The family of this 133-nucleotide sequence from Cotesia congregata is "U11 spliceosomal RNA". The literature on the family includes a 2004 paper in Proc Natl Acad Sci U S A by Schneider et al., "Identification of an evolutionarily divergent U11 small nuclear ribonucleoprotein particle in Drosophila". The base pairs follow the family's consensus structure, which is taken from published work. The family's RNA type in Rfam is spliceosomal small nuclear RNA. It scores 98 bits against the family's covariance model.
[Rfam]
RNA sequence: AAAAAGGGUGCUCGCUACUUUAAUAGCGCGUUGGUUCGUUACGCGAACUGGCGGGGUAUGGCUAUCAAGACAUACCCAGUACGUAAUUUUUGUAAUCGUGAGGCUGUUAGCUGCCAGAUGCACUGACGCCUCC
Numbered sequence: 001a002a003a004a005a006g007g008g009u010g011c012u013c014g015c016u017a018c019u020u021u022a023a024u025a026g027c028g029c030g031u032u033g034g035u036u037c038g039u040u041a042c043g044c045g046a047a048c049u050g051g052c053g054g055g056g057u058a059u060g061g062c063u064a065u066c067a068a069g070a071c072a073u074a075c076c077c078a079g080u081a082c083g084u085a086a087u088u089u090u091u092g093u094a095a096u097c098g099u100g101a102g103g104c105u106g107u108u109a110g111c112u113g114c115c116a117g118a119u120g121c122a123c124u125g126a127c128g129c130c131u132c133c
Base pairs, nucleotide, nucleotide: 008082009081010080011079012078013028014027015026016025017024029053030052031051032050033049034048035047036046037045038044039043054077055076056075057074058073059072060071101131102130103129104128106127107126108125109124110123112122113121114120